[Rfam]
RNA sequence: AUAGGGGAAGCUGAAAACCUGAUAGAGUAAGCA
Numbered sequence: 001a002u003a004g005g006g007g008a009a010g011c012u013g014a015a016a017a018c019c020u021g022a023u024a025g026a027g028u029a030a031g032c033a
Stems, first nucleotide, its partner, number of pairs: 003020003010032003